[Rfam]
The record is an 83-nucleotide RNA sequence from Cnephaeus nilssonii, which matches "mir-574 microRNA precursor family" in Rfam.
The base pairs follow the family's consensus structure, which was predicted with RNAalifold.
NCBI's taxonomy places the organism under Eukaryota, Eumetazoa, Dipnotetrapodomorpha, Amniota, Cnephaeus.
A search with the family's covariance model found it, with a score of 82 bits.
RNA sequence: AGGCCUGCAGAGAGAAAGGCAGGAUCUGAUCCACAGCCUCCAUGGCAGCUGUUGAUCAGCCAUCACCUCUCUCUUUCUCUCCC
Numbered sequence: 001a002g003g004c005c006u007g008c009a010g011a012g013a014g015a016a017a018g019g020c021a022g023g024a025u026c027u028g029a030u031c032c033a034c035a036g037c038c039u040c041c042a043u044g045g046c047a048g049c050u051g052u053u054g055a056u057c058a059g060c061c062a063u064c065a066c067c068u069c070u071c072u073c074u075u076u077c078u079c080u081c082c083c
Base pairs, nucleotide, nucleotide: 010075011074012073013072014071015070017068018067019066022063026059027058028057029056030055031054034051035050036049037048
Background:
Rfam 15.1 lists 4,084 matches to the family in 7 species. A reference for the family is Lui et al. (2007), "Patterns of known and novel small RNAs in human cervical cancer", Cancer Res.